[Rfam]
RNA sequence: CUCUGGAGAGUGUCGACGCUUUGUCGACCACCCACGGGGAACACUGCGAAAGCAGCCGAACUCUCAGGUUAGAGGACAGAG
Numbered sequence: 001c002u003c004u005g006g007a008g009a010g011u012g013u014c015g016a017c018g019c020u021u022u023g024u025c026g027a028c029c030a031c032c033c034a035c036g037g038g039g040a041a042c043a044c045u046g047c048g049a050a051a052g053c054a055g056c057c058g059a060a061c062u063c064u065c066a067g068g069u070u071a072g073a074g075g076a077c078a079g080a081g
Stems, first nucleotide, its partner, number of pairs: 001081005012028004030069003034064001037063003044055004
Dot-bracket structure: (((((......((((.........)))).(((.(..(((....((((....)))).....))))..))).......)))))
The record is an 81-nucleotide RNA from Ferroacidibacillus organovorans, which matches "Glycine riboswitch aptamer" in Rfam. NCBI's taxonomy places the organism under Bacteria, Bacillati, Bacillota, Bacilli, Ferroacidibacillus.